[Rfam]
RNA sequence: UCGAUUUAGUGCAAAAUACGCCACAUGCAGAAUAACCGACGCUUAAAGGCGCCGGUUAUUUUUUUUG
Numbered sequence: 001u002c003g004a005u006u007u008a009g010u011g012c013a014a015a016a017u018a019c020g021c022c023a024c025a026u027g028c029a030g031a032a033u034a035a036c037c038g039a040c041g042c043u044u045a046a047a048g049g050c051g052c053c054g055g056u057u058a059u060u061u062u063u064u065u066u067g
Base pairs, nucleotide, nucleotide: 011021012020033058034057035056036055037054038053040051041050
About this RNA: The family of this 67-nucleotide sequence from Ewingella americana is "Enterobacterial sRNA STnc240". By type it is a small RNA.